[Rfam]
RNA sequence: UUUAGAAAAAGGCAAACCUGUUGAAAGGCAGGGACGCAAAGCUAUGGGUCUAAGGGAUUAUCCUACGAUUGCCAGGUUGCCGGA
Numbered sequence: 001u002u003u004a005g006a007a008a009a010a011g012g013c014a015a016a017c018c019u020g021u022u023g024a025a026a027g028g029c030a031g032g033g034a035c036g037c038a039a040a041g042c043u044a045u046g047g048g049u050c051u052a053a054g055g056g057a058u059u060a061u062c063c064u065a066c067g068a069u070u071g072c073c074a075g076g077u078u079g080c081c082g083g084a
Base pairs, nucleotide, nucleotide: 012037013036017032018031019030020029021028022027040078041077042076043075045074046073047072048069049068050067055063056062057061